The family of this 87-nucleotide RNA from Burkholderiales bacterium PBB5 is "Burkholderia RNA 7 (anti-hemB)".
[Rfam]
RNA sequence: CCCCUGCUUUUCCUCCCUGAGCAGGUGCCUGCGCGUGACAUCACGUCCAGGUUUGCCACCCCAGCCCCAGCGGCUGGGGUUCUUUUU
Numbered sequence: 001c002c003c004c005u006g007c008u009u010u011u012c013c014u015c016c017c018u019g020a021g022c023a024g025g026u027g028c029c030u031g032c033g034c035g036u037g038a039c040a041u042c043a044c045g046u047c048c049a050g051g052u053u054u055g056c057c058a059c060c061c062c063a064g065c066c067c068c069a070g071c072g073g074c075u076g077g078g079g080u081u082c083u084u085u086u087u
Stems, first nucleotide, its partner, number of pairs: 003025006027052004033046005059079008

Rfam's curators write: This RNA motif was identified by computational search in b-proteobacteria Burkholderia. Co-purified with Hfq, expression confirmed by Northern blot. The organism belongs to Burkholderiales, within Bacteria.